[Rfam]
RNA sequence: GCCAAAUGAUGUAAAACAUGUAGCAUAGCCCUCAGUGCAAAGAUGACAUACAUCUAUCACCCAAUACUGAUGGCU
Numbered sequence: 001g002c003c004a005a006a007u008g009a010u011g012u013a014a015a016a017c018a019u020g021u022a023g024c025a026u027a028g029c030c031c032u033c034a035g036u037g038c039a040a041a042g043a044u045g046a047c048a049u050a051c052a053u054c055u056a057u058c059a060c061c062c063a064a065u066a067c068u069g070a071u072g073g074c075u
Stems, first nucleotide, its partner, number of pairs: 001074004028038002031035001
RNA: Small nucleolar RNA SNORD83